Background: Rfam assigns this 123-nucleotide RNA sequence from Halobacillus salinus to the family "Ribosomal protein L20 leader". This family is a putative r-protein leader autoregulatory structure found in B. subtilis and other low-GC Gram-positive bacteria. Its family is annotated with regulation of gene expression in the Gene Ontology. The base pairs follow the family's consensus structure, which was predicted with CMfinder. On this family, see Zengel and Lindahl, Prog Nucleic Acid Res Mol Biol 1994: "Diverse mechanisms for regulating ribosomal protein synthesis in Escherichia coli". Rfam classes the family as a cis-regulatory leader. Taxonomically the source falls in Halobacillus (Bacteria, Bacillati, Bacillota, Bacillaceae).
[Rfam]
RNA sequence: AGAGACAAGUAGAAGCACCCGCUUCUCACCUGAUCGACGCGAAAAGCAGUUGGCAGGUCAUGAAUUCCUUUUUUGACAGGAUCAGUGUGGGUGCAGUAUGUGUACCGACGCUUUUUUUUAUGG
Dot-bracket structure: ..........((((((....)))))).(((.....(((((.....)).)))....)))...........................(((.((((((.....)))))).))).............